[Rfam]
RNA sequence: CCGAAUGUUCAGCCAUUCGUAGUCUACGGAUAGUGCGUCACUGGUAACGGUGGGGUGCGAAGCUUCCUGACAAUGUAGCCCUUCUUCUGAAGCAAUCAGAGCUGUGAAGUUUCUGAUCGGAUUCUGCGAGCAAUACGCGGAUGAGGCG
Numbered sequence: 001c002c003g004a005a006u007g008u009u010c011a012g013c014c015a016u017u018c019g020u021a022g023u024c025u026a027c028g029g030a031u032a033g034u035g036c037g038u039c040a041c042u043g044g045u046a047a048c049g050g051u052g053g054g055g056u057g058c059g060a061a062g063c064u065u066c067c068u069g070a071c072a073a074u075g076u077a078g079c080c081c082u083u084c085u086u087c088u089g090a091a092g093c094a095a096u097c098a099g100a101g102c103u104g105u106g107a108a109g110u111u112u113c114u115g116a117u118c119g120g121a122u123u124c125u126g127c128g129a130g131c132a133a134u135a136c137g138c139g140g141a142u143g144a145g146g147c148g
Base pairs, nucleotide, nucleotide: 002019003018004017005016006015007014028067029066030065033058034057035056036055038053039052040051041050042049043048084092085091086090093119095117096116102109103108123141124140125139126138127137128136

Shown here is a 148-nucleotide RNA from Reinekea blandensis, a member of the family "Group II catalytic intron D1-D4-7". The literature on the family includes a 2001 paper in Trends Genet by Bonen and Vogel, "The ins and outs of group II introns". The base pairs follow the family's consensus structure. The source organism's lineage runs through Bacteria, Pseudomonadota, Gammaproteobacteria, Oceanospirillales and Reinekea blandensis. Rfam's curators put it in the seed alignment. Gene Ontology term of the family: Group II intron splicing.